[Rfam]
RNA sequence: GAUCAAGAAGUUCGGCUAUCAGGCCCUCAGCUCACGCCGACUGGCAACCGCGAAUCGCUCACGGUGCCCCUGAGGGAAGAUCGGCUGCGCGGUCAUCCGACCGGGCGGAAGAAUGCGAU
Numbered sequence: 001g002a003u004c005a006a007g008a009a010g011u012u013c014g015g016c017u018a019u020c021a022g023g024c025c026c027u028c029a030g031c032u033c034a035c036g037c038c039g040a041c042u043g044g045c046a047a048c049c050g051c052g053a054a055u056c057g058c059u060c061a062c063g064g065u066g067c068c069c070c071u072g073a074g075g076g077a078a079g080a081u082c083g084g085c086u087g088c089g090c091g092g093u094c095a096u097c098c099g100a101c102c103g104g105g106c107g108g109a110a111g112a113a114u115g116c117g118a119u
Stems, first nucleotide, its partner, number of pairs: 001082004009042001012040005021032002043068003048064003052060002085108004090103005
The family of this 119-nucleotide RNA sequence from Corynebacterium doosanense is "SAM (S-adenosyl methionine) riboswitch aptamer". Rfam 15.1 lists 2,360 matches to the family in 1,305 species. On this family, see Weinberg et al., RNA 2008: "The aptamer core of SAM-IV riboswitches mimics the ligand-binding site of SAM-I riboswitches". About the family: SAM-IV is a mRNA element that regulates gene expression via direct sensing of S-adenosylmethionine (SAM or AdoMet). SAM-IV riboswitches share conserved nucleotide positions with the previously described SAM-I riboswitches sequence analysis and molecular recognition experiments suggest that SAM-I and SAM-IV riboswitches share similar ligand binding sites, but have different scaffolds. The source organism's lineage runs through Bacteria, Actinomycetota, Mycobacteriales, Corynebacteriaceae and Corynebacterium doosanense. The match comes from Rfam's covariance-model search (61 bits).